[Rfam]
RNA sequence: AAAAUCUUAAACAACGAAAGCCCUACCUCUCUUUCGUCCUUUCGGCUCCGAAGCCGGUCCAGUGUGAAUAAGUCUUUCUCAAAUGUA
Numbered sequence: 001a002a003a004a005u006c007u008u009a010a011a012c013a014a015c016g017a018a019a020g021c022c023c024u025a026c027c028u029c030u031c032u033u034u035c036g037u038c039c040u041u042u043c044g045g046c047u048c049c050g051a052a053g054c055c056g057g058u059c060c061a062g063u064g065u066g067a068a069u070a071a072g073u074c075u076u077u078c079u080c081a082a083a084u085g086u087a
Base pairs, nucleotide, nucleotide: 034067035066036065039062040061042057043056044055045054046053047052
The family of this 87-nucleotide RNA from Bacillus sp. HNG is "BsrC". Rfam describes the family as follows. The 301 nucleotide sequence from Kouji Nakamura has been trimmed to a highly conserved ~85 nucleotide long core to form this family. A search with the family's covariance model found it, with a score of 84 bits. On this family, see Saito et al., Gene 2008: "Novel small RNA-encoding genes in the intergenic regions of Bacillus subtilis". The organism belongs to Bacillus, within Bacteria. The family's RNA type in Rfam is small RNA.